This 239-nucleotide sequence from Streptomyces sp. SID8354 belongs to the Rfam family "Streptomyces sRNA 4677". The pairing is the family consensus, mapped onto this sequence. Rfam's curators write: Located in the intergenic region between anti-sigma factor SCO4677 gene and a putative regulatory protein gene SCO4676. scr4677 expression requires the SCO4677 activity and scr4677 sRNA itself seem to affect the levels of the SCO4676-associated transcripts. Rfam 15.1 lists 563 matches to the family in 285 species. Rfam classes the family as a small RNA.

[Rfam]
RNA sequence: GGCCACGUCGCGGCCCGGCGCGACGUAAAGACUCAAAGACCGGGGAAAGCACCUCCCCCAACCCCUCCGACCUCCCCGGCACCUCCGCCACCCACACGGGUGACUUGAGGCAACUCAACUGGAUUUGGGGAGGGUUGAGCGGCAUAUGCUCGCCGCGACAAGUGCACCACCGCACACAUGCUUCGGCCCCCGGCCGGGACGGCAAUCCCGAACGAGGGCCUGACCAACAAGCAAAGCCG
Numbered sequence: 001g002g003c004c005a006c007g008u009c010g011c012g013g014c015c016c017g018g019c020g021c022g023a024c025g026u027a028a029a030g031a032c033u034c035a036a037a038g039a040c041c042g043g044g045g046a047a048a049g050c051a052c053c054u055c056c057c058c059c060a061a062c063c064c065c066u067c068c069g070a071c072c073u074c075c076c077c078g079g080c081a082c083c084u085c086c087g088c089c090a091c092c093c094a095c096a097c098g099g100g101u102g103a104c105u106u107g108a109g110g111c112a113a114c115u116c117a118a119c120u121g122g123a124u125u126u127g128g129g130g131a132g133g134g135u136u137g138a139g140c141g142g143c144a145u146a147u148g149c150u151c152g153c154c155g156c157g158a159c160a161a162g163u164g165c166a167c168c169a170c171c172g173c174a175c176a177c178a179u180g181c182u183u184c185g186g187c188c189c190c191c192g193g194c195c196g197g198g199a200c201g202g203c204a205a206u207c208c209c210g211a212a213c214g215a216g217g218g219c220c221u222g223a224c225c226a227a228c229a230a231g232c233a234a235a236g237c238c239g
Stems, first nucleotide, its partner, number of pairs: 007228002010225001015079004089102005120152003185220005191214002196209004